Annotation
The family of this 91-nucleotide RNA from Natronincola ferrireducens is "Glycine riboswitch aptamer". The organism belongs to Natronincola, within Bacteria.
RNA sequence: GGACGAACCUCUGGAGAGACUCAAACGAGCACCGAAGGGGAAAGCCUGAUUUUCAGGUGAAACUCUCAGGUAAAAGGACAGGGGAUUUAUC
Numbered sequence: 001g002g003a004c005g006a007a008c009c010u011c012u013g014g015a016g017a018g019a020c021u022c023a024a025a026c027g028a029g030c031a032c033c034g035a036a037g038g039g040g041a042a043a044g045c046c047u048g049a050u051u052u053u054c055a056g057g058u059g060a061a062a063c064u065c066u067c068a069g070g071u072a073a074a075a076g077g078a079c080a081g082g083g084g085a086u087u088u089a090u091c
Stems, first nucleotide, its partner, number of pairs: 006086001008084006020029003031071003034067002038065003044058004
It scores 64 bits against the family's covariance model.